[Rfam]
Overview
The record is a 127-nucleotide sequence from Pristionchus pacificus, which matches "Nematode snoRNA ceN36-1" in Rfam.

RNA sequence: AGUCGCUCUCCAGCUCCAUACGAAAGUCAGUGAUUCGCGUGGCGUUCUUUGUAGCGUAAAUGAAAUGCUUGAAUAAAACGGUGGCUAGUCCUUUAUGGGCUGCUAUUACCAAACCCUCGCGACAUUU
Numbered sequence: 001a002g003u004c005g006c007u008c009u010c011c012a013g014c015u016c017c018a019u020a021c022g023a024a025a026g027u028c029a030g031u032g033a034u035u036c037g038c039g040u041g042g043c044g045u046u047c048u049u050u051g052u053a054g055c056g057u058a059a060a061u062g063a064a065a066u067g068c069u070u071g072a073a074u075a076a077a078a079c080g081g082u083g084g085c086u087a088g089u090c091c092u093u094u095a096u097g098g099g100c101u102g103c104u105a106u107u108a109c110c111a112a113a114c115c116c117u118c119g120c121g122a123c124a125u126u127u
Stems, first nucleotide, its partner, number of pairs: 004056004012046003016042004021037001024035002081106004086102003090099003
Dot-bracket structure: ...((((....(((.((((.(..((........)).).)))).)))......))))........................((((.(((.(((....)))))))))).....................
Taxonomically the source falls in Pristionchus (Eukaryota, Bilateria, Protostomia, Rhabditida). Rfam classes the family as an H/ACA-box small nucleolar RNA.